This 107-nucleotide sequence from Clupea harengus belongs to the Rfam family "Small nucleolar RNA U6-53/MBII-28".
RNA sequence: GUCCGCUGAUGAGACUGCCAUGCUAAUACCGAUGCAACAGGAGGACUCUGUCUCCCUGUGUGCAUAUGAGUUCAGUUGAACUUCUCAGACUGAGACCUCUGAGGACU
Number, nucleotide and partner (000 for none) at each position: 001g106002u105003c104004c103005g000006c000007u000008g000009a000010u000011g000012a000013g000014a000015c000016u000017g000018c000019c000020a000021u000022g000023c000024u000025a000026a000027u000028a000029c000030c000031g000032a000033u000034g000035c000036a000037a000038c000039a000040g000041g000042a000043g053044g052045a051046c050047u000048c000049u000050g046051u045052c044053u043054c000055c000056c000057u000058g000059u000060g000061u000062g000063c000064a000065u000066a000067u000068g000069a000070g000071u000072u000073c000074a000075g000076u000077u000078g000079a000080a000081c000082u000083u000084c000085u000086c000087a000088g000089a000090c000091u000092g000093a000094g000095a000096c000097c000098u000099c000100u000101g000102a000103g004104g003105a002106c001107u000
The organism belongs to Clupea, within Eukaryota. It scores 66 bits against the family's covariance model.